Shown here is a 132-nucleotide RNA from Populus trichocarpa, a member of the family "Small nucleolar RNA snoR77". The base pairs follow the family's consensus structure, which was predicted with WAR. For this family Rfam cites "Experimental RNomics: identification of 140 candidates for small non-messenger RNAs in the plant Arabidopsis thaliana" (Marker et al., Curr Biol, 2002). NCBI's taxonomy places the organism under Eukaryota, Embryophyta, Pentapetalae, Saliceae, Populus. Rfam 15.1 lists 649 matches to the family in 221 species. Rfam classes the family as an H/ACA-box small nucleolar RNA. It is one of the family's seed sequences.
[Rfam]
RNA sequence: AGGCAGCCUCUUUGCUGAAAAGAAGAUAGCAAAGAAGGUGUUAAACUGCUCGUACAUUAAUUUGUCUUAUGCUCUUCAGACUUGCUGAGACUUCUCUGUCUUUGAAGCUGGUCUAGUAAGCCUAAGCACAUC
Numbered sequence: 001a002g003g004c005a006g007c008c009u010c011u012u013u014g015c016u017g018a019a020a021a022g023a024a025g026a027u028a029g030c031a032a033a034g035a036a037g038g039u040g041u042u043a044a045a046c047u048g049c050u051c052g053u054a055c056a057u058u059a060a061u062u063u064g065u066c067u068u069a070u071g072c073u074c075u076u077c078a079g080a081c082u083u084g085c086u087g088a089g090a091c092u093u094c095u096c097u098g099u100c101u102u103u104g105a106a107g108c109u110g111g112u113c114u115a116g117u118a119a120g121c122c123u124a125a126g127c128a129c130a131u132c
Base pairs, nucleotide, nucleotide: 002042003041004040005039007038008037009035010034011033012032013031014030015029016028017027066126067125068124071121072120073119078114079113080112081111082110084108085107086106089100090099091098